[Rfam]
RNA sequence: AGAGGUCAAAAGUAUGAGGCCACAGAAGAAGUGCCCAUUGCACGGCCACGUCAGAUUCCAACAAAUCUGUGAAUUCUGCU
Numbered sequence: 001a002g003a004g005g006u007c008a009a010a011a012g013u014a015u016g017a018g019g020c021c022a023c024a025g026a027a028g029a030a031g032u033g034c035c036c037a038u039u040g041c042a043c044g045g046c047c048a049c050g051u052c053a054g055a056u057u058c059c060a061a062c063a064a065a066u067c068u069g070u071g072a073a074u075u076c077u078g079c080u
Stems, first nucleotide, its partner, number of pairs: 016049001018047004024080002027077004031043003052069006